[Rfam]
RNA sequence: AAUAAACAGAAUAGCAACACUCAUAUAAAUCCAGUAAUAUGGUCUGGAAGUAUCUACCAGGCAACCGUAAAUUGUCUGACUAUGGGUGAAAUUAUUAUAAUG
Numbered sequence: 001a002a003u004a005a006a007c008a009g010a011a012u013a014g015c016a017a018c019a020c021u022c023a024u025a026u027a028a029a030u031c032c033a034g035u036a037a038u039a040u041g042g043u044c045u046g047g048a049a050g051u052a053u054c055u056a057c058c059a060g061g062c063a064a065c066c067g068u069a070a071a072u073u074g075u076c077u078g079a080c081u082a083u084g085g086g087u088g089a090a091a092u093u094a095u096u097a098u099a100a101u102g
Stems, first nucleotide, its partner, number of pairs: 018088008030048005058078007
The family of this 102-nucleotide sequence from Paramaledivibacter caminithermalis is "Purine riboswitch aptamer". Rfam describes the family as follows. Riboswitches are metabolite binding domains within certain messenger RNAs that serve as precision sensors for their corresponding targets. Allosteric rearrangement of mRNA structure is mediated by ligand binding, and this results in modulation of gene expression. A class of riboswitches that selectively recognises guanine and becomes saturated at concentrations as low as 5 nM. In Bacillus subtilis, this mRNA motif is located on at least five separate transcriptional units that together encode 17 genes that are mostly involved in purine transport and purine nucleotide biosynthesis. It has also been shown that some members of this family are specific for adenine instead. Hence this family are termed purine riboswitches. Pairs were carried over by alignment from the consensus structure, which is taken from published work. NCBI's taxonomy places the organism under Bacteria, Bacillota, Clostridia, Caminicellaceae, Paramaledivibacter caminithermalis. For this family Rfam cites "Adenine riboswitches and gene activation by disruption of a transcription terminator" (Mandal and Breaker, Nat Struct Mol Biol, 2004). The match comes from Rfam's covariance-model search (93 bits).